[Rfam]
RNA sequence: GUGUCCCCUAGAGUUCUCCUGAUCACUUCAAUGGGACUUUCUUCGAAAACACUUCUCAAUGAAGUGUUUGGGGGAACUCCCGGUGUCGC
Numbered sequence: 001g002u003g004u005c006c007c008c009u010a011g012a013g014u015u016c017u018c019c020u021g022a023u024c025a026c027u028u029c030a031a032u033g034g035g036a037c038u039u040u041c042u043u044c045g046a047a048a049a050c051a052c053u054u055c056u057c058a059a060u061g062a063a064g065u066g067u068u069u070g071g072g073g074g075a076a077c078u079c080c081c082g083g084u085g086u087c088g089c
Base pairs, nucleotide, nucleotide: 005085007083008082011079012078013077014076015075016074017073018072019071020070022069024066025065026064027063028062029061030060032058033057034056035055

Annotation:
The record is an 89-nucleotide RNA sequence from Corymbia citriodora, which matches "mir-395 microRNA precursor family" in Rfam. mir-395 was identified in both Arabidopsis thaliana and Oryza sativa computationally and was later experimentally verified. mir-395 is thought to target mRNAs coding for ATP sulphurylases. The mature sequence is excised from the 3' arm of the hairpin. The family has 25 seed sequences and 2,798 matches in Rfam 15.1. The source organism's lineage runs through Eukaryota, Streptophyta, Embryophyta, eudicotyledons and Corymbia citriodora. The match comes from Rfam's covariance-model search (65 bits).